[Rfam]
RNA sequence: GUGGAACAUCAAGAGUUGGGGCGACGCCCAACGCCAACCUGCCUUCCGGGCAAGGUGGCACUCCCUUCACGGGAGGAUGUGGCCGAACCGGCAAUUAAACGGAUCAUG
Numbered sequence: 001g002u003g004g005a006a007c008a009u010c011a012a013g014a015g016u017u018g019g020g021g022c023g024a025c026g027c028c029c030a031a032c033g034c035c036a037a038c039c040u041g042c043c044u045u046c047c048g049g050g051c052a053a054g055g056u057g058g059c060a061c062u063c064c065c066u067u068c069a070c071g072g073g074a075g076g077a078u079g080u081g082g083c084c085g086a087a088c089c090g091g092c093a094a095u096u097a098a099a100c101g102g103a104u105c106a107u108g
Stems, first nucleotide, its partner, number of pairs: 006080005015032006033059003038055003041051003047102001082092004
RNA: SAM-I/IV (S-adenosyl methionine) riboswitch aptamer
Organism: Sphingomonas sp. KC8